Shown here is an 81-nucleotide RNA from Holzapfeliella floricola, a member of the family "SAM-III riboswitch aptamer (SMK box)".
[Rfam]
RNA sequence: GAUUCUUACUUGUGUUCCCGAUAGGAUCUAGUUAAAUACUAGAUAUGCCUUGUAACCGAAUCGAAGGGGGAAAUAAAAAUG
Number, nucleotide and partner (000 for none) at each position: 001g000002a000003u000004u000005c000006u000007u000008a000009c000010u000011u000012g000013u000014g000015u072016u071017c070018c069019c068020g000021a000022u000023a050024g049025g048026a000027u043028c042029u041030a040031g039032u000033u000034a000035a000036a000037u000038a000039c031040u030041a029042g028043a027044u000045a000046u000047g000048c025049c024050u023051u000052g000053u000054a000055a000056c067057c066058g000059a000060a000061u000062c000063g000064a000065a000066g057067g056068g019069g018070g017071a016072a015073a000074u000075a000076a000077a000078a000079a000080u000081g000
NCBI's taxonomy places the organism under Bacteria, Bacillati, Bacilli, Lactobacillaceae, Holzapfeliella floricola. Its family is annotated with regulation of translational initiation and methionine adenosyltransferase activity in the Gene Ontology.